[Rfam]
RNA: Bacillaceae-1 RNA
Organism: Psychrobacillus soli
RNA sequence: CAGAGUGGAACAAAGGCUAAGAGCACCACAUCGUGUGGCAACUCCUUCGACGACAACAUCCUGUUGG
Numbered sequence: 001c002a003g004a005g006u007g008g009a010a011c012a013a014a015g016g017c018u019a020a021g022a023g024c025a026c027c028a029c030a031u032c033g034u035g036u037g038g039c040a041a042c043u044c045c046u047u048c049g050a051c052g053a054c055a056a057c058a059u060c061c062u063g064u065u066g067g
Base pairs, nucleotide, nucleotide: 011049013047014046015045016044026038027037028036029035054066055065056064057063